[Rfam]
RNA: mir-BART3 microRNA precursor family
Organism: Lymphocryptovirus humangamma4
RNA sequence: CUUUGGUGGAACCUAGUGUUAGUGUUGUGCUGUAAAUAAGUGUCCAGCGCACCACUAGUCACCAGGUGUCACCGGAG
Numbered sequence: 001c002u003u004u005g006g007u008g009g010a011a012c013c014u015a016g017u018g019u020u021a022g023u024g025u026u027g028u029g030c031u032g033u034a035a036a037u038a039a040g041u042g043u044c045c046a047g048c049g050c051a052c053c054a055c056u057a058g059u060c061a062c063c064a065g066g067u068g069u070c071a072c073c074g075g076a077g
Stems, first nucleotide, its partner, number of pairs: 001077009011067004016062003019058006026051007033042002